[Rfam]
RNA sequence: GGUGGUCCGCACGGGAGUCCAGGGGACUGGGCUGAGAGGGGAUCUGCCGAUCCCGACCGUCGAACCUGAUCCGGAUCAUGCCGGCGCAGGGAGCGUGAGUGCCAUGAAC
Numbered sequence: 001g002g003u004g005g006u007c008c009g010c011a012c013g014g015g016a017g018u019c020c021a022g023g024g025g026a027c028u029g030g031g032c033u034g035a036g037a038g039g040g041g042a043u044c045u046g047c048c049g050a051u052c053c054c055g056a057c058c059g060u061c062g063a064a065c066c067u068g069a070u071c072c073g074g075a076u077c078a079u080g081c082c083g084g085c086g087c088a089g090g091g092a093g094c095g096u097g098a099g100u101g102c103c104a105u106g107a108a109c
Base pairs, nucleotide, nucleotide: 006097008095009094010093011060012059013058014057017032018031019030020029021028039054040053041052042051043050065090066089067088068087071084072083073082074081
RNA: TPP riboswitch aptamer (THI element)
Organism: Actinophytocola oryzae